[Rfam]
This 27-nucleotide RNA from Alphavirus fortmorgan belongs to the Rfam family "ribosomal frameshift site". Gene Ontology term of the family: viral translational frameshifting. On this family, see Firth et al., Virol J 2009: "Bioinformatic evidence for a stem-loop structure 5'-adjacent to the IGR-IRES and for an overlapping gene in the bee paralysis dicistroviruses". It is one of the family's seed sequences. The organism belongs to Fort Morgan virus, within Viruses.

RNA sequence: GGCGUCUGCCUGGGGAAGGCAGACGCC
Numbered sequence: 001g002g003c004g005u006c007u008g009c010c011u012g013g014g015g016a017a018g019g020c021a022g023a024c025g026c027c
Base pairs, nucleotide, nucleotide: 001027002026003025004024005023006022007021008020009019010018011017